[Rfam]
RNA sequence: UAAUAGCCCUGAUGGGAAUGGCAUCCUCCCAACUUGAUUGGGAGAUAGAAUGGACAGCAGGAAAAAGG
Numbered sequence: 001u002a003a004u005a006g007c008c009c010u011g012a013u014g015g016g017a018a019u020g021g022c023a024u025c026c027u028c029c030c031a032a033c034u035u036g037a038u039u040g041g042g043a044g045a046u047a048g049a050a051u052g053g054a055c056a057g058c059a060g061g062a063a064a065a066a067g068g
Base pairs, nucleotide, nucleotide: 009060010059011058013056014055018051019050023046024045025044028042029041030040031039032038
Background:
A member of the RNA family "Flavo-1 RNA", 68 nucleotides long. It is one of the family's seed sequences. It is annotated as a small RNA. Pairs were carried over by alignment from the consensus structure, which is taken from published work.